[Rfam]
RNA sequence: AAGCAUCCACUGAUAGGCCUGUUGCCAUACUUGGUGGCCUCUGGGUUUGCACAAGGAUGCAACAGUAAUAUUCCUCAUAAUGUCUGGCCAUCUGGAAGGUGGUUGGAAAAGACUAAAUUGAGGAGAAAAUGA
Dot-bracket structure: ..((((((..((.((((((....(((((.....))))).....))))))))...))))))...........((((((.....(((..(((((.....))))).......)))......))))))........
RNA: Small nucleolar RNA SNORA31